[Rfam]
RNA sequence: ACCUUAUCAAGAGCGACGGAGGGAAUAGGCCCUGUGAAGUCCGGCAACCGGUAUAAAGUACACGGUGCCAAGUCCUACGGAAUAAUAUAUUCUGGUAGAUGAGGA
Numbered sequence: 001a002c003c004u005u006a007u008c009a010a011g012a013g014c015g016a017c018g019g020a021g022g023g024a025a026u027a028g029g030c031c032c033u034g035u036g037a038a039g040u041c042c043g044g045c046a047a048c049c050g051g052u053a054u055a056a057a058g059u060a061c062a063c064g065g066u067g068c069c070a071a072g073u074c075c076u077a078c079g080g081a082a083u084a085a086u087a088u089a090u091u092c093u094g095g096u097a098g099a100u101g102a103g104g105a
Base pairs, nucleotide, nucleotide: 002104003103004102005101006100007099008098013042015041016040017039021032022031023030026077027076028075029074043069044068045067046066048065049064050061073097078094079093080092081091082090083089
This 105-nucleotide RNA from Maledivibacter halophilus belongs to the Rfam family "SAM riboswitch aptamer (S box leader)". The base pairs follow the family's consensus structure, which is taken from published work.